[Rfam]
RNA sequence: UCCUUAUCUUUUAAAAGUUUCAAGUUGGUCCCUUAUCUUUAUUUUAGAUUUCAAGUUGAUCCAUUCAGUCAACUUUUUUACUAUUACCGUUAAAUUUGGACAAGUGUCAUCUACUCAAGUGUGCCACGUGUCCAAAUUAGUUUGUCAUGUGUCCAAAUUUAACGGUAAUAGUAAACAAUUUGACGGAAGGGACCAAUUUGAAACCUAAAAUAAAGAUAAUGGACCAACUUGAAACUUUUAAAAGAUAAGGGA
Numbered sequence: 001u002c003c004u005u006a007u008c009u010u011u012u013a014a015a016a017g018u019u020u021c022a023a024g025u026u027g028g029u030c031c032c033u034u035a036u037c038u039u040u041a042u043u044u045u046a047g048a049u050u051u052c053a054a055g056u057u058g059a060u061c062c063a064u065u066c067a068g069u070c071a072a073c074u075u076u077u078u079u080a081c082u083a084u085u086a087c088c089g090u091u092a093a094a095u096u097u098g099g100a101c102a103a104g105u106g107u108c109a110u111c112u113a114c115u116c117a118a119g120u121g122u123g124c125c126a127c128g129u130g131u132c133c134a135a136a137u138u139a140g141u142u143u144g145u146c147a148u149g150u151g152u153c154c155a156a157a158u159u160u161a162a163c164g165g166u167a168a169u170a171g172u173a174a175a176c177a178a179u180u181u182g183a184c185g186g187a188a189g190g191g192a193c194c195a196a197u198u199u200g201a202a203a204c205c206u207a208a209a210a211u212a213a214a215g216a217u218a219a220u221g222g223a224c225c226a227a228c229u230u231g232a233a234a235c236u237u238u239u240a241a242a243a244g245a246u247a248a249g250g251g252a
Base pairs, nucleotide, nucleotide: 002250003249004248005247006246007245008244023229024228025227027225028224029223031221033219034218035217036216037215038214039213040212041211042210043209045207046206047205
Annotation:
MIR2655 microRNA precursor family: a 252-nucleotide sequence from Trifolium subterraneum. The source organism's lineage runs through Eukaryota, eudicotyledons, rosids, fabids and Trifolium.